The family of this 103-nucleotide sequence from Arthrobacter sp. FB24 is "mraW RNA". The sequence is in the family's curated seed alignment. Rfam 15.1 lists 851 matches to the family in 821 species. The family's RNA type in Rfam is cis-regulatory element. Taxonomically the source falls in Arthrobacter (Bacteria, Actinomycetes, Micrococcales, Micrococcaceae).
[Rfam]
RNA sequence: UUGUAUGAGAUCUCCAGCCGCCCAUCCGAACGUUGUCCUGGCUCACUUCCCCGGAGCCAGGCGGACGUCCGGAUAGGCGCGGAUGGGGAUCUGGUUCAAGAAA
Numbered sequence: 001u002u003g004u005a006u007g008a009g010a011u012c013u014c015c016a017g018c019c020g021c022c023c024a025u026c027c028g029a030a031c032g033u034u035g036u037c038c039u040g041g042c043u044c045a046c047u048u049c050c051c052c053g054g055a056g057c058c059a060g061g062c063g064g065a066c067g068u069c070c071g072g073a074u075a076g077g078c079g080c081g082g083a084u085g086g087g088g089a090u091c092u093g094g095u096u097c098a099a100g101a102a103a
Stems, first nucleotide, its partner, number of pairs: 010090007020078003024074005030068004034063002037061008